[Rfam]
A member of the RNA family "Potassium channel RNA editing signal" from Laodelphax striatellus, 114 nucleotides long. Rfam classes the family as a cis-regulatory element. From the family's description: This family represents a group of sequences related to the human potassium channel Kv1.1 hairpin element which directs the efficient modification of an adenosine to inosine by an adenosine deaminase acting on RNA (ADAR). The ADAR modification causes an isoleucine/valine recoding event which lies in the ion-conducting pore of the potassium channel.
RNA sequence: GUCGGCUAUGGUGACAUGGCGCCCAAGACCUAUGUCGGCAUGUUCGUCGGUGCGCUGUGCGCGCUCGCCGGUGUGCUCACCAUCGCCCUGCCCGUGCCUGUCAUCGUGUCCAAC
Numbered sequence: 001g002u003c004g005g006c007u008a009u010g011g012u013g014a015c016a017u018g019g020c021g022c023c024c025a026a027g028a029c030c031u032a033u034g035u036c037g038g039c040a041u042g043u044u045c046g047u048c049g050g051u052g053c054g055c056u057g058u059g060c061g062c063g064c065u066c067g068c069c070g071g072u073g074u075g076c077u078c079a080c081c082a083u084c085g086c087c088c089u090g091c092c093c094g095u096g097c098c099u100g101u102c103a104u105c106g107u108g109u110c111c112a113a114c
Stems, first nucleotide, its partner, number of pairs: 001114002004111002007108005013102004018097001021095002037077004050062002